[Rfam]
RNA sequence: GGGGUCGCUUGGUUUUGACAGCGGGUAGAAGAGGUAUGUAAGCAUGUCGAGCGCUGGGAUGUCGGCUCGUAAAUCUCGAUUCUCAAAAUUGUAACUGGCGAAAAUAACUACGCUCUUGCUGCUUAAUCGAAGUAUAGUAGAUUCUAGCUUUAUCCCGGCCAUAGUGUCGGGACGAGACAUCUCCCAAAUGCCGUGGUCUCGAGGCUCUUUGAUCAGGAGGUGCAGCUAAAUCGGGAAUAGUCGAACAUAGCCUCGUGCGUUCGAUGAGAUUCAGAGGAUAAGGUAACGGUUGGUGGCUUCGGUCUUGCCGGUACUCGAAAAAUGAAGGCGAAGAUAAACAUGUAGAAAGCGUAUUGCUUCCUCGUUUGGACGCGGGUUCGACUCCCGCCGGCUCCACAA
Numbered sequence: 001g002g003g004g005u006c007g008c009u010u011g012g013u014u015u016u017g018a019c020a021g022c023g024g025g026u027a028g029a030a031g032a033g034g035u036a037u038g039u040a041a042g043c044a045u046g047u048c049g050a051g052c053g054c055u056g057g058g059a060u061g062u063c064g065g066c067u068c069g070u071a072a073a074u075c076u077c078g079a080u081u082c083u084c085a086a087a088a089u090u091g092u093a094a095c096u097g098g099c100g101a102a103a104a105u106a107a108c109u110a111c112g113c114u115c116u117u118g119c120u121g122c123u124u125a126a127u128c129g130a131a132g133u134a135u136a137g138u139a140g141a142u143u144c145u146a147g148c149u150u151u152a153u154c155c156c157g158g159c160c161a162u163a164g165u166g167u168c169g170g171g172a173c174g175a176g177a178c179a180u181c182u183c184c185c186a187a188a189u190g191c192c193g194u195g196g197u198c199u200c201g202a203g204g205c206u207c208u209u210u211g212a213u214c215a216g217g218a219g220g221u222g223c224a225g226c227u228a229a230a231u232c233g234g235g236a237a238u239a240g241u242c243g244a245a246c247a248u249a250g251c252c253u254c255g256u257g258c259g260u261u262c263g264a265u266g267a268g269a270u271u272c273a274g275a276g277g278a279u280a281a282g283g284u285a286a287c288g289g290u291u292g293g294u295g296g297c298u299u300c301g302g303u304c305u306u307g308c309c310g311g312u313a314c315u316c317g318a319a320a321a322a323u324g325a326a327g328g329c330g331a332a333g334a335u336a337a338a339c340a341u342g343u344a345g346a347a348a349g350c351g352u353a354u355u356g357c358u359u360c361c362u363c364g365u366u367u368g369g370a371c372g373c374g375g376g377u378u379c380g381a382c383u384c385c386c387g388c389c390g391g392c393u394c395c396a397c398a399a
Stems, first nucleotide, its partner, number of pairs: 001395007019368002021365005027359001030358002033355007043342005048069005055085005150175002153172005178222006185211004190205003197235003240265007249279001251277004282315004287310004292304003297333002301329001372388005

This 399-nucleotide sequence from Paludibacter jiangxiensis belongs to the Rfam family "transfer-messenger RNA". Lineage of the source: Bacteria > Bacteroidota > Bacteroidia > Bacteroidales > Paludibacter. For this family Rfam cites "tmRDB (tmRNA database)" (Zwieb et al., Nucleic Acids Res, 2003). Its Rfam clan is "tRNA clan". Its family is annotated with RNA catabolic process in the Gene Ontology. About the family: Bacterial tmRNA, also known as 10Sa RNA or SsrA, is named for its dual tRNA and mRNA-like properties. A search with the family's covariance model found it, with a score of 154 bits. By type it is a non-coding RNA gene. Pairs were carried over by alignment from the consensus structure, which is taken from published work.